The record is a 105-nucleotide RNA sequence from Zea mays, which matches "Small nucleolar RNA Z103" in Rfam.
A search with the family's covariance model found it, with a score of 88 bits.
Lineage of the source: Eukaryota > Spermatophyta > Magnoliopsida > Panicoideae > Zea.
By type it is a C/D-box small nucleolar RNA.
The base pairs follow the family's consensus structure, which was predicted with PFOLD.
Rfam 15.1 lists 2,844 matches to the family in 233 species.

RNA sequence: AUGGAGAUGAGGAUCCUUUCCCCAGCUGAUCGACUAUGAUUAUACUGUGCGCAACUGCGACGCCUCCUCUGCGGAGGAGGGUCCCAAGCCAGAAAUCUGAUCCAU
Numbered sequence: 001a002u003g004g005a006g007a008u009g010a011g012g013a014u015c016c017u018u019u020c021c022c023c024a025g026c027u028g029a030u031c032g033a034c035u036a037u038g039a040u041u042a043u044a045c046u047g048u049g050c051g052c053a054a055c056u057g058c059g060a061c062g063c064c065u066c067c068u069c070u071g072c073g074g075a076g077g078a079g080g081g082u083c084c085c086a087a088g089c090c091a092g093a094a095a096u097c098u099g100a101u102c103c104a105u
Stems, first nucleotide, its partner, number of pairs: 001105005